RNA: mir-46/mir-47/mir-281 microRNA precursor family
RNA sequence: AUAACUCGAAAAUAAAGAGAGCUAUCCGUCGACAGUACAGCAUUUUCACACUGUCAUGGAGUUGCUCUCUUUAUGGACGAGUUC
Dot-bracket structure: .............(((((.(((..((((..(((.((.............)).))).))))...))).)))))............